[Rfam]
RNA sequence: GUGCUUUAGGGACAAACAAGUCCCUCAUAGUUGAUAACCAUUUAAACCACUUAUUCAGUGUCCUUUUUUUGGUGGCUUAUUGAUCAAUAUGGGCUGGGAUAUUC
Numbered sequence: 001g002u003g004c005u006u007u008a009g010g011g012a013c014a015a016a017c018a019a020g021u022c023c024c025u026c027a028u029a030g031u032u033g034a035u036a037a038c039c040a041u042u043u044a045a046a047c048c049a050c051u052u053a054u055u056c057a058g059u060g061u062c063c064u065u066u067u068u069u070u071g072g073u074g075g076c077u078u079a080u081u082g083a084u085c086a087a088u089a090u091g092g093g094c095u096g097g098g099a100u101a102u103u104c
Stems, first nucleotide, its partner, number of pairs: 038097003042093001055083006
Dot-bracket structure: .....................................(((.(............((((((.................)))))).........).))).......
RNA: Small nucleolar RNA snoR99
Organism: Hibiscus trionum